The family of this 81-nucleotide RNA sequence from Eubacterium sp. CAG:161 is "ZMP/ZTP riboswitch aptamer (pfl RNA motif)".

RNA sequence: UAUCUUCCAUGUGACUGGCGGAUUAGUGGAUUUACCACAGGGAGCAUGGAUUUAGUUUCGUCGACCGCCUGGGCAGCCUUC
Number, nucleotide and partner (000 for none) at each position: 001u000002a000003u000004c000005u000006u050007c049008c048009a047010u046011g045012u044013g000014a000015c041016u040017g069018g068019c067020g066021g065022a000023u000024u000025a000026g038027u037028g036029g035030a000031u000032u000033u000034a000035c029036c028037a027038c026039a000040g016041g015042g000043a000044g012045c011046a010047u009048g008049g007050a006051u000052u000053u000054a000055g000056u000057u000058u076059c000060g074061u073062c072063g000064a000065c021066c020067g019068c018069c017070u000071g000072g062073g061074c060075a000076g058077c000078c000079u000080u000081c000